[Rfam]
The record is a 117-nucleotide RNA sequence from Helicobacter hepaticus, which matches "Bacterial antisense RNA HPnc0260" in Rfam. Lineage of the source: Bacteria > Campylobacterales > Helicobacteraceae > Helicobacter > Helicobacter hepaticus. The sequence is in the family's curated seed alignment.
RNA sequence: AAUUUUUAACCUUGCUGAUGUGCUCAUUGAUAUAAGUGUGGUGUUGAUGAUUUAUCAAAUGUUACAAGAAAAAAGAAAUGGUGGCCACGACUGGACUUGAACCAGCGACCACUACCA
Numbered sequence: 001a002a003u004u005u006u007u008a009a010c011c012u013u014g015c016u017g018a019u020g021u022g023c024u025c026a027u028u029g030a031u032a033u034a035a036g037u038g039u040g041g042u043g044u045u046g047a048u049g050a051u052u053u054a055u056c057a058a059a060u061g062u063u064a065c066a067a068g069a070a071a072a073a074a075g076a077a078a079u080g081g082u083g084g085c086c087a088c089g090a091c092u093g094g095a096c097u098u099g100a101a102c103c104a105g106c107g108a109c110c111a112c113u114a115c116c117a
Stems, first nucleotide, its partner, number of pairs: 005026001011020001013018001044050001079114006088107002091105004